A member of the RNA family "mir-46/mir-47/mir-281 microRNA precursor family" from Tigriopus californicus, 83 nucleotides long. Its family is annotated with RISC complex and miRNA-mediated post-transcriptional gene silencing in the Gene Ontology.
[Rfam]
RNA sequence: CUGUCCUUACUUUUAAGAGAGCUUUCUUGUGACAGUGUUGGGUAUAAUUCUGUCAUGGAACUGCUCUCUUCAUCGUAGGACUU
Numbered sequence: 001c002u003g004u005c006c007u008u009a010c011u012u013u014u015a016a017g018a019g020a021g022c023u024u025u026c027u028u029g030u031g032a033c034a035g036u037g038u039u040g041g042g043u044a045u046a047a048u049u050c051u052g053u054c055a056u057g058g059a060a061c062u063g064c065u066c067u068c069u070u071c072a073u074c075g076u077a078g079g080a081c082u083u
Base pairs, nucleotide, nucleotide: 015070016069017068018067020065021064022063025059026058027057031054032053033052035050